Description: Rfam assigns this 80-nucleotide sequence from Alligator sinensis to the family "Mammalian CPEB3 ribozyme". A search with the family's covariance model found it, with a score of 40 bits. NCBI's taxonomy places the organism under Eukaryota, Opisthokonta, Sauria, Alligatorinae, Alligator. The base pairs follow the family's consensus structure, which is taken from published work.
RNA sequence: GGUUGUAAGUUUGAGGCCAUAGCAGAAGCGAUCAUGGCGCCACAGCCUGUCAGAUACUAAUGAAAUCUGUAAAUUCUGCU
Number, nucleotide and partner (000 for none) at each position: 001g000002g000003u000004u000005g000006u000007a000008a000009g000010u000011u000012u000013g000014a000015g047016g046017c045018c000019a000020u000021a080022g079023c078024a077025g076026a075027a074028g040029c039030g038031a000032u000033c000034a000035u000036g000037g000038c030039g029040c028041c000042a000043c000044a000045g017046c016047c015048u000049g000050u000051c069052a068053g067054a066055u065056a000057c000058u000059a000060a000061u000062g000063a000064a000065a055066u054067c053068u052069g051070u000071a000072a000073a000074u027075u026076c025077u024078g023079c022080u021